[Rfam]
RNA: L31-Actinobacteria ribosomal protein leader
RNA sequence: CGAGCUCCGGUUCACGUCUGCGCAGUCGCGCCGACGACCCGGCGGCC
Numbered sequence: 001c002g003a004g005c006u007c008c009g010g011u012u013c014a015c016g017u018c019u020g021c022g023c024a025g026u027c028g029c030g031c032c033g034a035c036g037a038c039c040c041g042g043c044g045g046c047c
Stems, first nucleotide, its partner, number of pairs: 004046002007042004015036004020031004